[Rfam]
RNA sequence: ACCGGCCGCGCGGGAGAGCGUGAGGGCAGGGUAACCGGCGCCUCACCACCGAAGGAGCAACCGCCCCGGAAACUCUCAGGUCAGCAGGACCGCGCAGGCUGG
Numbered sequence: 001a002c003c004g005g006c007c008g009c010g011c012g013g014g015a016g017a018g019c020g021u022g023a024g025g026g027c028a029g030g031g032u033a034a035c036c037g038g039c040g041c042c043u044c045a046c047c048a049c050c051g052a053a054g055g056a057g058c059a060a061c062c063g064c065c066c067c068g069g070a071a072a073c074u075c076u077c078a079g080g081u082c083a084g085c086a087g088g089a090c091c092g093c094g095c096a097g098g099c100u101g102g
Stems, first nucleotide, its partner, number of pairs: 006097001008095006020046006048081003051077002055075003061069002
Record summary:
A member of the RNA family "Glycine riboswitch aptamer" from Sphingopyxis bauzanensis, 102 nucleotides long. A search with the family's covariance model found it, with a score of 54 bits. Rfam links the family to the GO term glycine biosynthetic process.